Rfam assigns this 120-nucleotide sequence from Poecilia reticulata to the family "Small nucleolar RNA SNORA26". Gene Ontology terms of the family: RNA processing and nucleolus. About the family: The snoRNA HBI-6 belong to the H/ACA family of snoRNAs, guiding the pseudouridylation of position U4522 if the 28S rRNA. HBI-6 is the human orthologue of mouse MBI-6 snoRNA. It is annotated as an H/ACA-box small nucleolar RNA. Clan: SNORA27 clan.

[Rfam]
RNA sequence: UUGCCCACCUUGGACCCCCAAUCGUCCUUGGUGCUGAACACAGGGGGGCAGAGAGAGUCUCUCAUAAACCUGUAGUGACGGCUCCAGUCCUCACUGCGGAUCCUGUCGGGAGAAACAACC
Numbered sequence: 001u002u003g004c005c006c007a008c009c010u011u012g013g014a015c016c017c018c019c020a021a022u023c024g025u026c027c028u029u030g031g032u033g034c035u036g037a038a039c040a041c042a043g044g045g046g047g048g049c050a051g052a053g054a055g056a057g058u059c060u061c062u063c064a065u066a067a068a069c070c071u072g073u074a075g076u077g078a079c080g081g082c083u084c085c086a087g088u089c090c091u092c093a094c095u096g097c098g099g100a101u102c103c104u105g106u107c108g109g110g111a112g113a114a115a116c117a118a119c120c
Stems, first nucleotide, its partner, number of pairs: 002050005008044003017036001019031001059112005070099007078091001080089003